[Rfam]
RNA: Alphaproteobacteria transfer-messenger RNA
Organism: Roseovarius halotolerans
RNA sequence: CCCCUUUGCAAAUCGCACGACCCCACCUAUAUUCACAGUGUCCCUUCGGGGACUAUGGACAUAAACGCGCUCGUAAUAAGCGGAUCGGACCCGGGGGCGGUACCCGGCGGCUCCACCAAUAAACCUUUCGUUGGAGGUGGUUUUGGGGCCGAAACAGGAUCGACGAACGUCUAAAGGGGUUAGCUUUGUCCCGGUGAGAUACCACCGUUAUCGGUUCGCUAAAGCAUAAUUGCCAACGACAAUCGUGCUCCGGUCGCCGUUGCUGCGUAAGCAGUAACAAGACCGAAAUCUUAAGCCCAGUCCUCUAGCAAGGUCUGGCGGGGUUCGCAGGCACCUGGCAACAGAAGCCUGCACC
Numbered sequence: 001c002c003c004c005u006u007u008g009c010a011a012a013u014c015g016c017a018c019g020a021c022c023c024c025a026c027c028u029a030u031a032u033u034c035a036c037a038g039u040g041u042c043c044c045u046u047c048g049g050g051g052a053c054u055a056u057g058g059a060c061a062u063a064a065a066c067g068c069g070c071u072c073g074u075a076a077u078a079a080g081c082g083g084a085u086c087g088g089a090c091c092c093g094g095g096g097g098c099g100g101u102a103c104c105c106g107g108c109g110g111c112u113c114c115a116c117c118a119a120u121a122a123a124c125c126u127u128u129c130g131u132u133g134g135a136g137g138u139g140g141u142u143u144u145g146g147g148g149c150c151g152a153a154a155c156a157g158g159a160u161c162g163a164c165g166a167a168c169g170u171c172u173a174a175a176g177g178g179g180u181u182a183g184c185u186u187u188g189u190c191c192c193g194g195u196g197a198g199a200u201a202c203c204a205c206c207g208u209u210a211u212c213g214g215u216u217c218g219c220u221a222a223a224g225c226a227u228a229a230u231u232g233c234c235a236a237c238g239a240c241a242a243u244c245g246u247g248c249u250c251c252g253g254u255c256g257c258c259g260u261u262g263c264u265g266c267g268u269a270a271g272c273a274g275u276a277a278c279a280a281g282a283c284c285g286a287a288a289u290c291u292u293a294a295g296c297c298c299a300g301u302c303c304u305c306u307a308g309c310a311a312g313g314u315c316u317g318g319c320g321g322g323g324u325u326c327g328c329a330g331g332c333a334c335c336u337g338g339c340a341a342c343a344g345a346a347g348c349c350u351g352c353a354c355c
Base pairs, nucleotide, nucleotide: 040053041052042051043050044049057191058190059189060188061187067184068183069180070179071178072177081169082168085166086165087164091107092106093105094104095103108151109150110149111148112147113146114145192207193206194205195204198217199216201215202214203213321336322335323334324333327352328351329350330349331348332347